[Rfam]
Record summary: The record is a 139-nucleotide RNA from Pterocles gutturalis, which matches "Small nucleolar RNA SNORA8" in Rfam. The match comes from Rfam's covariance-model search (78 bits). ACA8 is a member of the H/ACA class of snoRNA that guide the sites of modification of uridines to pseudouridines.

RNA sequence: UGCACUGUAGGGUAUCUGUACCUGGCAGUGUCUUCCUGAUGGGGUGUUCAAAAAGCAGUGCUACAGCAUUUCAGCAGCUGGCUUUGCUGGUUUUCACACAAAUGUGCAGCUUAAGCUUGGUAUUUCUGUUCAAACAAGU
Numbered sequence: 001u002g003c004a005c006u007g008u009a010g011g012g013u014a015u016c017u018g019u020a021c022c023u024g025g026c027a028g029u030g031u032c033u034u035c036c037u038g039a040u041g042g043g044g045u046g047u048u049c050a051a052a053a054a055g056c057a058g059u060g061c062u063a064c065a066g067c068a069u070u071u072c073a074g075c076a077g078c079u080g081g082c083u084u085u086g087c088u089g090g091u092u093u094u095c096a097c098a099c100a101a102a103u104g105u106g107c108a109g110c111u112u113a114a115g116c117u118u119g120g121u122a123u124u125u126c127u128g129u130u131c132a133a134a135c136a137a138g139u
Stems, first nucleotide, its partner, number of pairs: 002061006015054001017052001018047006024040001026038003064128003068124001070122001071120004081107002084104001